The family of this 156-nucleotide RNA from Carya illinoinensis is "small nucleolar RNA snoR134". The literature on the family includes a 2009 paper in Nucleic Acids Res by Chen and Wu, "Mining small RNA sequencing data: a new approach to identify small nucleolar RNAs in Arabidopsis". Taxonomically the source falls in Carya (Eukaryota, Pentapetalae, Fagales, Juglandaceae). It scores 82 bits against the family's covariance model.
[Rfam]
Nucleotides: 156
Stems, first nucleotide, its partner, number of pairs: 003074006010068002020062005025056002027053002086149001088147004095139002098136006107127002
Number, partner (000 for none) and nucleotide at each position: 001000c002000u003074g004073c005072a006071c007070g008069a009000u010068g011067c012000a013000c014000u015000a016000c017000c018000c019000c020062g021061g022060g023059c024058u025056u026055c027053u028052c029000u030000g031000a032000a033000c034000g035000a036000g037000u038000a039000a040000u041000c042000a043000a044000u045000c046000g047000a048000u049000g050000a051000c052028g053027a054000c055026g056025a057000a058024a059023g060022c061021c062020c063000c064000a065000u066000u067011g068010c069008u070007u071006g072005u073004g074003c075000c076000a077000a078000a079000a080000c081000g082000a083000u084000g085000u086149g087000a088147u089146g090145u091144c092000a093000a094000g095139u096138g097000u098136u099135g100134c101133a102132g103131u104000u105000c106000a107127g108126c109000c110000a111000u112000u113000c114000u115000c116000u117000u118000u119000c120000u121000c122000u123000a124000c125000a126108g127107c128000u129000g130000a131103g132102c133101u134100g135099u136098g137000u138096c139095a140000a141000a142000u143000c144091g145090a146089c147088g148000c149086c150000c151000a152000c153000a154000u155000c156000u